Shown here is a 131-nucleotide RNA sequence from Xenopus laevis, a member of the family "Small nucleolar RNA SNORA31". Rfam's curators write: ACA31 (SNORA31) belongs to the H/ACA class of snoRNAs which are thought to guide the sites of modification of uridines to pseudouridines. The family's consensus secondary structure was predicted with RNAalifold. A reference for the family is Huttenhofer et al. (2001), "RNomics: an experimental approach that identifies 201 candidates for novel, small, non-messenger RNAs in mouse", EMBO J. It is annotated as an H/ACA-box small nucleolar RNA.
RNA sequence: ACGCAUCCAUUGAUAGACCAUGAGCUAUUUAAUUGCUUUUUUGGUUUGCACAGAGAUGCAAGAGAAAAAUUCCUCGCGCUUUCUGUCUGGCUUAAUAUGUAGCUUUUCAGAUUGAAUAGAGGAAUAUAAAU
Numbered sequence: 001a002c003g004c005a006u007c008c009a010u011u012g013a014u015a016g017a018c019c020a021u022g023a024g025c026u027a028u029u030u031a032a033u034u035g036c037u038u039u040u041u042u043g044g045u046u047u048g049c050a051c052a053g054a055g056a057u058g059c060a061a062g063a064g065a066a067a068a069a070u071u072c073c074u075c076g077c078g079c080u081u082u083c084u085g086u087c088u089g090g091c092u093u094a095a096u097a098u099g100u101a102g103c104u105u106u107u108c109a110g111a112u113u114g115a116a117u118a119g120a121g122g123a124a125u126a127u128a129a130a131u
Base pairs, nucleotide, nucleotide: 003059004058005057006056007055011050012049014048015047016046017045018044019043022038023037024036025035027033028032071123072122073121074120075119079114082111083110084109085108089104090103091102092101